[Rfam]
Rfam assigns this 213-nucleotide RNA sequence from Enterococcus faecalis to the family "Group II catalytic intron D1-D4-5".
Its family is annotated with Group II intron splicing in the Gene Ontology.
About the family: Group II introns are found in rRNA, tRNA and mRNA of organelles in fungi, plants and protists, and also in mRNA in bacteria.
Pairs were carried over by alignment from the consensus structure.
RNA sequence: GAGAACUUUCAGUUUGAGAGGUGGAAUGAUAGGGUAACGCCUUGAAACGCCUCCCUUAAUACUCCGACAUGCCUUUUCUUACGUGUUAAAAGAAAUGGUAUGAAGCUCGGUGAAGUCGGCAGAAGGAUACCGUAAGCAAGAUUGAAAAACAUGGGUCUGCACGAAAAUUUCCUAGAGGUAGGAAACGUAUCUAAUAUGCCGGAGGUCGCAAAA
Numbered sequence: 001g002a003g004a005a006c007u008u009u010c011a012g013u014u015u016g017a018g019a020g021g022u023g024g025a026a027u028g029a030u031a032g033g034g035u036a037a038c039g040c041c042u043u044g045a046a047a048c049g050c051c052u053c054c055c056u057u058a059a060u061a062c063u064c065c066g067a068c069a070u071g072c073c074u075u076u077u078c079u080u081a082c083g084u085g086u087u088a089a090a091a092g093a094a095a096u097g098g099u100a101u102g103a104a105g106c107u108c109g110g111u112g113a114a115g116u117c118g119g120c121a122g123a124a125g126g127a128u129a130c131c132g133u134a135a136g137c138a139a140g141a142u143u144g145a146a147a148a149a150c151a152u153g154g155g156u157c158u159g160c161a162c163g164a165a166a167a168u169u170u171c172c173u174a175g176a177g178g179u180a181g182g183a184a185a186c187g188u189a190u191c192u193a194a195u196a197u198g199c200c201g202g203a204g205g206u207c208g209c210a211a212a213a
Base pairs, nucleotide, nucleotide: 018053019052020051021050022049023048031043032042033041034040054205055204056203057202064110065109066108067107068102069101070100071099072098073097075095076094077093078092079091080090117201118200119199120198121197125192126191127190128189129188130187131163132162133161137159138158168185169184170183171182172181173180174179